[Rfam]
RNA sequence: ACCAGUUAUGGAGACAUGGUGCCCAAAACGAUUGCUGGCAAGAUAUUUGGCUCCAUUUGUUCCCUGAGCGGGGUGCUUGUCAUUGCUCUCCCAGUCCCAGUUAUCGUUUCCAAC
Dot-bracket structure: ....(..((((.(((..((.((..............((((........((...........))..........))))................))))..))).))))..)....